[Rfam]
This 111-nucleotide RNA from Clostridium acetobutylicum belongs to the Rfam family "SAM riboswitch aptamer (S box leader)".
The organism belongs to Clostridium acetobutylicum, within Bacteria.
The SAM riboswitch is found upstream of a number of genes which code for proteins involved in methionine or cysteine biosynthesis in Gram-positive bacteria.
RNA sequence: CUCUUAUCAAGAGAGGUGGAGGGAAAGGGCCCGUUGAAACCCGGCAACCGAUGUAUUAAUUUAAGUACAUAAUGGUGCCAAUUCCUGCAGAAUUAUUCUGCAAGAUAAGAG
Numbered sequence: 001c002u003c004u005u006a007u008c009a010a011g012a013g014a015g016g017u018g019g020a021g022g023g024a025a026a027g028g029g030c031c032c033g034u035u036g037a038a039a040c041c042c043g044g045c046a047a048c049c050g051a052u053g054u055a056u057u058a059a060u061u062u063a064a065g066u067a068c069a070u071a072a073u074g075g076u077g078c079c080a081a082u083u084c085c086u087g088c089a090g091a092a093u094u095a096u097u098c099u100g101c102a103a104g105a106u107a108a109g110a111g
Stems, first nucleotide, its partner, number of pairs: 001111008013042001015041003021032003027086003043079004048075002051070006083103001088100005